A member of the RNA family "L2-Alphaproteobacteria ribosomal protein leader" from Rhodobacteraceae bacterium PD-2, 85 nucleotides long. On this family, see Eckert and Weinberg, BMC Microbiol 2020: "Discovery of 20 novel ribosomal leader candidates in bacteria and archaea". The family's consensus secondary structure is taken from published work.
Nucleotides: 085
Stems, first nucleotide, its partner, number of pairs: 001018004006014003027063003
Number, partner (000 for none) and nucleotide at each position: 001018g002017g003016g004015c005000a006014c007013c008012u009000u010000c011000g012008g013007g014006g015004g016003c017002c018001u019000a020000u021000a022000c023000c024000c025000c026000g027063g028062g029061c030000c031000g032000c033000a034000u035000g036000g037000c038000c039000c040000c041000a042000c043000a044000c045000a046000c047000a048000g049000g050000c051000g052000g053000g054000g055000c056000a057000a058000c059000c060000c061029g062028c063027c064000g065000g066000a067000a068000g069000c070000u071000u072000a073000c074000g075000g076000a077000a078000g079000a080000c081000a082000g083000a084000a085000a